[Rfam]
RNA sequence: AGAGGCCAAGUUCGAGGCCAUAGCAGAAGCACUUCAGUGCAGCCCUUUCAAAUUCCAAGAAAUCUGUGAAUACUGCU
Number, nucleotide and partner (000 for none) at each position: 001a000002g000003a000004g000005g000006c000007c000008a000009a000010g000011u000012u000013c000014g045015a000016g044017g043018c042019c000020a000021u000022a077023g076024c075025a074026g073027a000028a071029g040030c039031a038032c000033u000034u000035c000036a000037g000038u031039g030040c029041a000042g018043c017044c016045c014046u000047u000048u000049c066050a065051a000052a063053u062054u061055c000056c000057a000058a000059g000060a000061a054062a053063u052064c000065u050066g049067u000068g000069a000070a000071u028072a000073c026074u025075g024076c023077u022
Overview:
The record is a 77-nucleotide RNA sequence from Alligator mississippiensis, which matches "Mammalian CPEB3 ribozyme" in Rfam. NCBI's taxonomy places the organism under Eukaryota, Eumetazoa, Sarcopterygii, Archelosauria, Alligator.